[Rfam]
RNA: Eukaryotic large subunit ribosomal RNA, nucleotides 3657 to 4075
RNA sequence: GACCCGUCGUUGCAACAGUAAUCCUGCUCAGUACGAGAGGAACCGCAGGUUCAGACAUUUGGUGCGUGCGCUUGGCUGAGGAGCCAACGGUGCGAAGCUACCAUCUGCGGGAUUAUGACUGAACGCCUCUAAGUCAGAAUCCCGCCUGGACGUGACGAUACCGUAGCGCCGAACCCUUCGAUCGGCCUGGGAUAGCCGGGACGCCCUCGGGCGCCUCCGGUGCGGAGAGCCGUACGUGACUGGACCGGGGGGCGGACGAACGAGCGCCGCUCCCCACCCCAAGCAAGCACCUCAAUUUUGUGGAGAAACCGGUGCUAAAUGACUCGUAGACGACCUGAUUCUGGGUCGGGGUGUCGUGCGUGGCAGAGCAGCUCAUCGCUGCGAUCCAUUGAAAGUCAUCCCCAGAUCCAAGUUUUUGU
Numbered sequence: 001g002a003c004c005c006g007u008c009g010u011u012g013c014a015a016c017a018g019u020a021a022u023c024c025u026g027c028u029c030a031g032u033a034c035g036a037g038a039g040g041a042a043c044c045g046c047a048g049g050u051u052c053a054g055a056c057a058u059u060u061g062g063u064g065c066g067u068g069c070g071c072u073u074g075g076c077u078g079a080g081g082a083g084c085c086a087a088c089g090g091u092g093c094g095a096a097g098c099u100a101c102c103a104u105c106u107g108c109g110g111g112a113u114u115a116u117g118a119c120u121g122a123a124c125g126c127c128u129c130u131a132a133g134u135c136a137g138a139a140u141c142c143c144g145c146c147u148g149g150a151c152g153u154g155a156c157g158a159u160a161c162c163g164u165a166g167c168g169c170c171g172a173a174c175c176c177u178u179c180g181a182u183c184g185g186c187c188u189g190g191g192a193u194a195g196c197c198g199g200g201a202c203g204c205c206c207u208c209g210g211g212c213g214c215c216u217c218c219g220g221u222g223c224g225g226a227g228a229g230c231c232g233u234a235c236g237u238g239a240c241u242g243g244a245c246c247g248g249g250g251g252g253c254g255g256a257c258g259a260a261c262g263a264g265c266g267c268c269g270c271u272c273c274c275c276a277c278c279c280c281a282a283g284c285a286a287g288c289a290c291c292u293c294a295a296u297u298u299u300g301u302g303g304a305g306a307a308a309c310c311g312g313u314g315c316u317a318a319a320u321g322a323c324u325c326g327u328a329g330a331c332g333a334c335c336u337g338a339u340u341c342u343g344g345g346u347c348g349g350g351g352u353g354u355c356g357u358g359c360g361u362g363g364c365a366g367a368g369c370a371g372c373u374c375a376u377c378g379c380u381g382c383g384a385u386c387c388a389u390u391g392a393a394a395g396u397c398a399u400c401c402c403c404a405g406a407u408c409c410a411a412g413u414u415u416u417u418g419u
Stems, first nucleotide, its partner, number of pairs: 006159008016148003021051001023049005052107004060100003067094005072087006109143003116136005168313004317417003321413001323337001326334001343409005349402003354394001360389004365385001368382005
Dot-bracket structure: .....((((((((..(((..(.(((((.................))))).)((((....(((....(((((((((((....))))))..)))))...)))...)))).(((....(((((...........)))))....)))..)))...))))))))........((((..........................................................................................................................................))))...(((.(.(..(.......)..).....(((((.(((..(.....((((.(..(((((.....)))))..)))))....).....)))..)))))...).)))..